[Rfam]
RNA sequence: AUAUAUGAUGACUUACACUGGAAUCUUGUUCUGCUGAUGAGUUGCUGUUAAGACUUAAAGCAUCCUG
Numbered sequence: 001a002u003a004u005a006u007g008a009u010g011a012c013u014u015a016c017a018c019u020g021g022a023a024u025c026u027u028g029u030u031c032u033g034c035u036g037a038u039g040a041g042u043u044g045c046u047g048u049u050a051a052g053a054c055u056u057a058a059a060g061c062a063u064c065c066u067g
Base pairs, nucleotide, nucleotide: 024053025052026051027050028049031047033045034044